[Rfam]
RNA sequence: GCGGGCCCCGCCUCGUGAUCGUCUUCUCACCGCUCCCGAGGCAGGGCGGGAAAGAGGAGCGGCCCCCGGGUGGACGUGACACCCGGGGGCCGCUU
Numbered sequence: 001g002c003g004g005g006c007c008c009c010g011c012c013u014c015g016u017g018a019u020c021g022u023c024u025u026c027u028c029a030c031c032g033c034u035c036c037c038g039a040g041g042c043a044g045g046g047c048g049g050g051a052a053a054g055a056g057g058a059g060c061g062g063c064c065c066c067c068g069g070g071u072g073g074a075c076g077u078g079a080c081a082c083c084c085g086g087g088g089g090c091c092g093c094u095u
Base pairs, nucleotide, nucleotide: 002048003047007045008044010042011041012040013039015037017035018034021031057095058094059093060092061091062090063089064088065087066086067085068084069083070082071081072080

Rfam assigns this 95-nucleotide sequence from Streptomyces oceani to the family "sodF sRNA". A reference for the family is Kim et al. (2014), "Inverse regulation of Fe- and Ni-containing SOD genes by a Fur family regulator Nur through small RNA processed from 3'UTR of the sodF mRNA", Nucleic Acids Res. Taxonomically the source falls in Streptomyces (Bacteria, Bacillati, Actinomycetota, Kitasatosporales). Its family is annotated with regulation of mRNA stability, negative regulation of translation and mRNA binding in the Gene Ontology. Rfam classes the family as a small RNA. The base pairs follow the family's consensus structure.